[Rfam]
RNA sequence: AAUUAAUUAAGGGAGCUCCCUUCAGUCCAAGUACAGGAAGCUCAAGAUCCAAUUUGUCUCCCGCUUCAUUCACACAUUUACUGGGUGUCGUCCUGAGCUAAUAACCCAGUAUUUGGAUGAAUGACUCGGCAGCUAAUUAAAUCCUGUCACCACCCAUGAAUGGACUAAAGAAAGCUCUCUUCACCACUGCU
Numbered sequence: 001a002a003u004u005a006a007u008u009a010a011g012g013g014a015g016c017u018c019c020c021u022u023c024a025g026u027c028c029a030a031g032u033a034c035a036g037g038a039a040g041c042u043c044a045a046g047a048u049c050c051a052a053u054u055u056g057u058c059u060c061c062c063g064c065u066u067c068a069u070u071c072a073c074a075c076a077u078u079u080a081c082u083g084g085g086u087g088u089c090g091u092c093c094u095g096a097g098c099u100a101a102u103a104a105c106c107c108a109g110u111a112u113u114u115g116g117a118u119g120a121a122u123g124a125c126u127c128g129g130c131a132g133c134u135a136a137u138u139a140a141a142u143c144c145u146g147u148c149a150c151c152a153c154c155c156a157u158g159a160a161u162g163g164a165c166u167a168a169a170g171a172a173a174g175c176u177c178u179c180u181u182c183a184c185c186a187c188u189g190c191u
Stems, first nucleotide, its partner, number of pairs: 013177005020170001024166006036154001058132002061129003067123004075115001
This 191-nucleotide sequence from Malus baccata belongs to the Rfam family "MIR159 microRNA precursor family". The match comes from Rfam's covariance-model search (88 bits). Rfam links the family to the GO terms RISC complex and miRNA-mediated post-transcriptional gene silencing. The source organism's lineage runs through Eukaryota, Streptophyta, Streptophytina, eudicotyledons and Malus. The literature on the family includes a 2004 paper in Mol Cell by Jones-Rhoades and Bartel, "Computational identification of plant microRNAs and their targets, including a stress-induced miRNA".